[Rfam]
Nucleotides: 099
Stems, first nucleotide, its partner, number of pairs: 004093005009085006015076001017075005023067006034059004042051003
Number, partner (000 for none) and nucleotide at each position: 001000g002000g003000c004093g005092g006091g007090u008089c009085u010084c011083c012082c013081c014080g015076c016000a017075u018074c019073g020072c021071a022000g023067g024066a025065u026064g027063g028062u029000g030000a031000a032000c033000c034059u035058g036057g037056u038000c039000a040000g041000g042051u043050c044049c045000g046000g047000a048000a049044g050043g051042a052000a053000g054000c055000a056037g057036c058035c059034a060000c061000a062028g063027c064026c065025g066024u067023c068000u069000u070000a071021u072020g073019u074018g075017a076015g077000u078000g079000c080014c081013g082012g083011g084010g085009g086000u087000a088000a089008g090007g091006c092005u093004c094000g095000c096000c097000a098000c099000c
Annotation:
The record is a 99-nucleotide sequence from Candidatus Accumulibacter regalis, which matches "Bacterial small signal recognition particle RNA" in Rfam. Taxonomically the source falls in Candidatus Accumulibacter (Bacteria, Pseudomonadati, Pseudomonadota, Betaproteobacteria). Rfam's curators write: The signal recognition particle (SRP) is a universally conserved ribonucleoprotein involved in the co-translational targeting of proteins to membranes. Rfam classes the family as a non-coding RNA gene. The base pairs follow the family's consensus structure, which is taken from published work. A search with the family's covariance model found it, with a score of 79 bits. A reference for the family is Regalia et al. (2002), "Prediction of signal recognition particle RNA genes", Nucleic Acids Res.